Shown here is a 215-nucleotide sequence from Agrilus planipennis, a member of the family "R2 RNA element". The match comes from Rfam's covariance-model search (44 bits). Rfam links the family to the GO term regulation of reverse transcription. Pairs were carried over by alignment from the consensus structure, which is taken from published work. Taxonomically the source falls in Agrilus (Eukaryota, Metazoa, Altocrustacea, Coleoptera).
RNA sequence: AUGUGAUGACGCGAAAUCUUGAUGGAACACAAACUUGCUAUUUGGGUACAGAUGGCAAGUACUUCUGACUGAUGAGGACCUUAAAUGGUCCUAGAACGGCCUGAGGUAGAGGGGUUUUAGUCGGUAGGUCCGAGGACUUCUUCCUCGGGAAUCCGACACUACCCAGUCGUACGGACGGCUGGGUGUCUUCUGAAGAUUUCCCCUCUUCCACGAAA
Numbered sequence: 001a002u003g004u005g006a007u008g009a010c011g012c013g014a015a016a017u018c019u020u021g022a023u024g025g026a027a028c029a030c031a032a033a034c035u036u037g038c039u040a041u042u043u044g045g046g047u048a049c050a051g052a053u054g055g056c057a058a059g060u061a062c063u064u065c066u067g068a069c070u071g072a073u074g075a076g077g078a079c080c081u082u083a084a085a086u087g088g089u090c091c092u093a094g095a096a097c098g099g100c101c102u103g104a105g106g107u108a109g110a111g112g113g114g115u116u117u118u119a120g121u122c123g124g125u126a127g128g129u130c131c132g133a134g135g136a137c138u139u140c141u142u143c144c145u146c147g148g149g150a151a152u153c154c155g156a157c158a159c160u161a162c163c164c165a166g167u168c169g170u171a172c173g174g175a176c177g178g179c180u181g182g183g184u185g186u187c188u189u190c191u192g193a194a195g196a197u198u199u200c201c202c203c204u205c206u207u208c209c210a211c212g213a214a215a
Base pairs, nucleotide, nucleotide: 039061040060041059042058043057044056063214064213065212105209106208108206109205111202112201113200120157121156122155123154124153129149130148131147132146133145134144135143136142159185161184162183163182164181165180